[Rfam]
RNA sequence: GCACCUGAAUCUUUCCUAUUCCUUGCAGUGCAGUGCAGGUCUGGGGACAGUUGGUGCUACAGCAAAGCAGUGGAAGUCCAGAUGGGUUGCUUUUGUUUCACCUGGAACUCAUCUCUACAACUCUGCAACACUU
Dot-bracket structure: (((((.......((((((..((...............))..)))))).....))))).........((((.(.......((((((((.....(((.......))).))))))))......).)))).......
The family of this 133-nucleotide RNA from Dromaius novaehollandiae is "Small nucleolar RNA SNORA55". The family has 29 seed sequences and 1,476 matches in Rfam 15.1. It is annotated as an H/ACA-box small nucleolar RNA. The source organism's lineage runs through Eukaryota, Chordata, Sauropsida, Theropoda and Dromaius. Its family is annotated with RNA processing and nucleolus in the Gene Ontology. About the family: ACA55 is a member of the H/ACA class of snoRNA that guide the sites of modification of uridines to pseudouridines.